Rfam assigns this 284-nucleotide RNA sequence from Loxodonta africana to the family "RNase MRP". The base pairs follow the family's consensus structure, which is taken from published work. By type it is a ribozyme. NCBI's taxonomy places the organism under Eukaryota, Dipnotetrapodomorpha, Theria, Eutheria, Loxodonta. For this family Rfam cites "Secondary structure of RNase MRP RNA as predicted by phylogenetic comparison" (Schmitt et al., FASEB J, 1993). Clan: RNaseP clan.

RNA sequence: GGUUCCUGCUGAAGGCCUGUAUCCUAGGCUACAAAUGGAGGACUUGUUCCCUACGCUACUGCUUAGGGGAAAGCCCCGGGACCUUGGACAGACAGUGCCGCGCGCGCACGCAUGCACGCAGACCUUGCUGUUUCUCACUGUAAACCCACCAAGAAGCAACCCCACGGUCUGCUGCGGGCAAGCUGAGCGGUGUGACGGUGGGAUGUCAUUCGUCAGCAGUGCUAGUUAUACAAGCAGUGAGCCUCUGCGCGCACCAGUCAAACGGGGUUCAUUCUUGGCGCAGC
Numbered sequence: 001g002g003u004u005c006c007u008g009c010u011g012a013a014g015g016c017c018u019g020u021a022u023c024c025u026a027g028g029c030u031a032c033a034a035a036u037g038g039a040g041g042a043c044u045u046g047u048u049c050c051c052u053a054c055g056c057u058a059c060u061g062c063u064u065a066g067g068g069g070a071a072a073g074c075c076c077c078g079g080g081a082c083c084u085u086g087g088a089c090a091g092a093c094a095g096u097g098c099c100g101c102g103c104g105c106g107c108a109c110g111c112a113u114g115c116a117c118g119c120a121g122a123c124c125u126u127g128c129u130g131u132u133u134c135u136c137a138c139u140g141u142a143a144a145c146c147c148a149c150c151a152a153g154a155a156g157c158a159a160c161c162c163c164a165c166g167g168u169c170u171g172c173u174g175c176g177g178g179c180a181a182g183c184u185g186a187g188c189g190g191u192g193u194g195a196c197g198g199u200g201g202g203a204u205g206u207c208a209u210u211c212g213u214c215a216g217c218a219g220u221g222c223u224a225g226u227u228a229u230a231c232a233a234g235c236a237g238u239g240a241g242c243c244u245c246u247g248c249g250c251g252c253a254c255c256a257g258u259c260a261a262a263c264g265g266g267g268u269u270c271a272u273u274c275u276u277g278g279c280g281c282a283g284c
Stems, first nucleotide, its partner, number of pairs: 002284003006280001008279005015235002018232003023067007040050003072269002075267003087099001089097002100119003104115002121207003129202001131198001135195004146190002149187001178183001237254003241250002
Dot-bracket structure: .(((.(.(((((..((.(((..(((((((..........(((.....)))..........)))))))....[[.[[[.........(.((.....)).)(((.((........)).))).(((.....(.(...((((.......((.(............................(....)...).)).))))..)...)..)))......................))).)).(((.((......)).)))..........]]]]].....)))))).)))